[Rfam]
RNA: MIR2593 microRNA precursor family
RNA sequence: UUAUAAGCAAAUUUGACUUUUUUGAUACAUUGGAAAAGUGAUGUAUGUAGUCCAUAUUAUGAACCAAAUACAUCACUUUUCAAAUGUACCAAAAAAGUCAAAUUUGCUUAUAA
Numbered sequence: 001u002u003a004u005a006a007g008c009a010a011a012u013u014u015g016a017c018u019u020u021u022u023u024g025a026u027a028c029a030u031u032g033g034a035a036a037a038g039u040g041a042u043g044u045a046u047g048u049a050g051u052c053c054a055u056a057u058u059a060u061g062a063a064c065c066a067a068a069u070a071c072a073u074c075a076c077u078u079u080u081c082a083a084a085u086g087u088a089c090c091a092a093a094a095a096a097g098u099c100a101a102a103u104u105u106g107c108u109u110a111u112a113a
Base pairs, nucleotide, nucleotide: 002112003111004110005109006108007107008106009105010104011103012102014100015099016098017097018096019095020094021093022092023091024090026088027087028086029085030084031083033081034080035079036078037077038076039075040074041073042072043071048066050064051063